[Rfam]
RNA sequence: AACAGGGAAACCGAAAACUGUAGUAAGAGUAGGUA
Numbered sequence: 001a002a003c004a005g006g007g008a009a010a011c012c013g014a015a016a017a018c019u020g021u022a023g024u025a026a027g028a029g030u031a032g033g034u035a
Base pairs, nucleotide, nucleotide: 002021003020004019005018010034011033012032
The record is a 35-nucleotide RNA sequence from Flavobacterium sp. 9AF, which matches "DUF805b RNA" in Rfam. Its Rfam clan is "DUF805 clan". A search with the family's covariance model found it, with a score of 37 bits. Pairs were carried over by alignment from the consensus structure, which is taken from published work.